[Rfam]
RNA sequence: AACUUUUACGAGGUAUCAGCACUUUUCUUUCAUUAGUGGGGAAGGCAGGAUGAAAAAUACGGAACAGCAGUAGACUUUUAAAGUUUAAAUAGACAGGUCUGAGUGCCUGAGCGUGCUCUUCCAUUUUACUUUAACCCUCCAAAGAAGUAUUCUGAUCCAGUUUCACUGCUGAUCAGCAAGGGUAAGUUGGAAGUU
Numbered sequence: 001a002a003c004u005u006u007u008a009c010g011a012g013g014u015a016u017c018a019g020c021a022c023u024u025u026u027c028u029u030u031c032a033u034u035a036g037u038g039g040g041g042a043a044g045g046c047a048g049g050a051u052g053a054a055a056a057a058u059a060c061g062g063a064a065c066a067g068c069a070g071u072a073g074a075c076u077u078u079u080a081a082a083g084u085u086u087a088a089a090u091a092g093a094c095a096g097g098u099c100u101g102a103g104u105g106c107c108u109g110a111g112c113g114u115g116c117u118c119u120u121c122c123a124u125u126u127u128a129c130u131u132u133a134a135c136c137c138u139c140c141a142a143a144g145a146a147g148u149a150u151u152c153u154g155a156u157c158c159a160g161u162u163u164c165a166c167u168g169c170u171g172a173u174c175a176g177c178a179a180g181g182g183u184a185a186g187u188u189g190g191a192a193g194u195u
Base pairs, nucleotide, nucleotide: 003019004018007015008014009013029146030145031144033142034141036139038137039136040135041132042131043130044129049125050124051123052122056120057119072100073099074098075097076096077095101116103114104113105112156191157190158189159188160187161182162181163180166176167175168174